[Rfam]
RNA sequence: AAUGGGAAAUGAUGACAGCUUAAUUGCUGGAUAGUAUCUGAGCAAGCUUUGAAGAUUUAUCUUUUGCACGUCAGUCUGAUCCCCAU
Numbered sequence: 001a002a003u004g005g006g007a008a009a010u011g012a013u014g015a016c017a018g019c020u021u022a023a024u025u026g027c028u029g030g031a032u033a034g035u036a037u038c039u040g041a042g043c044a045a046g047c048u049u050u051g052a053a054g055a056u057u058u059a060u061c062u063u064u065u066g067c068a069c070g071u072c073a074g075u076c077u078g079a080u081c082c083c084c085a086u
Stems, first nucleotide, its partner, number of pairs: 001086001004083004